[Rfam]
RNA sequence: UCUCCUCCCGGGGCCUCAGCCUCCACCCAGGGCUCUUGCAGGGCCAGGAGGCUAAGGCCCCUCACAGCGCUGC
Numbered sequence: 001u002c003u004c005c006u007c008c009c010g011g012g013g014c015c016u017c018a019g020c021c022u023c024c025a026c027c028c029a030g031g032g033c034u035c036u037u038g039c040a041g042g043g044c045c046a047g048g049a050g051g052c053u054a055a056g057g058c059c060c061c062u063c064a065c066a067g068c069g070c071u072g073c
Stems, first nucleotide, its partner, number of pairs: 001072001004069001005067002010061007019052004023047001028042001031039001